The record is a 175-nucleotide RNA sequence from Escherichia coli, which matches "sok antitoxin (CssrC)" in Rfam. The family's consensus secondary structure is taken from published work. The organism belongs to Escherichia coli, within Bacteria. By type it is an antitoxin RNA. Its family is annotated with mRNA binding in the Gene Ontology. Also identified in Shigella as CssrC.
[Rfam]
RNA sequence: GGGUGCUUGAGGCUGUCUGCCUCGGGCAUGCAGCCGUAAGGCAGACAGAGAAAAGCCCCAGUUAACAUUACGCGUCUUGCAGGACGCUUAACAUUAAUCUGAGGCCAAAUCUAUGACUUACAAACUUAGGUUAGCCUCUUACGUGCCGAAAGGCAAGGAGAAGUAGGCUAUGAAG
Numbered sequence: 001g002g003g004u005g006c007u008u009g010a011g012g013c014u015g016u017c018u019g020c021c022u023c024g025g026g027c028a029u030g031c032a033g034c035c036g037u038a039a040g041g042c043a044g045a046c047a048g049a050g051a052a053a054a055g056c057c058c059c060a061g062u063u064a065a066c067a068u069u070a071c072g073c074g075u076c077u078u079g080c081a082g083g084a085c086g087c088u089u090a091a092c093a094u095u096a097a098u099c100u101g102a103g104g105c106c107a108a109a110u111c112u113a114u115g116a117c118u119u120a121c122a123a124a125c126u127u128a129g130g131u132u133a134g135c136c137u138c139u140u141a142c143g144u145g146c147c148g149a150a151a152g153g154c155a156a157g158g159a160g161a162a163g164u165a166g167g168c169u170a171u172g173a174a175g
Stems, first nucleotide, its partner, number of pairs: 001059003005056004013048010026035001060100002063097001064095002068091002101138005108132006115125001142167001144165001146163001